[Rfam]
RNA sequence: UAAUAUCUGGGCAAUGGAGCUUGCCAUUAACCGCCGUUAUAUAUAAUAAAAGGCUGAUAGCUCCUACUUUCCU
Numbered sequence: 001u002a003a004u005a006u007c008u009g010g011g012c013a014a015u016g017g018a019g020c021u022u023g024c025c026a027u028u029a030a031c032c033g034c035c036g037u038u039a040u041a042u043a044u045a046a047u048a049a050a051a052g053g054c055u056g057a058u059a060g061c062u063c064c065u066a067c068u069u070u071c072c073u
Stems, first nucleotide, its partner, number of pairs: 010025004016064006033054003
Dot-bracket structure: .........[[[[..((((((]]]].......(((................)))....)))))).........
RNA: Fluoride riboswitch aptamer (crcB RNA motif)
Organism: Dulcicalothrix desertica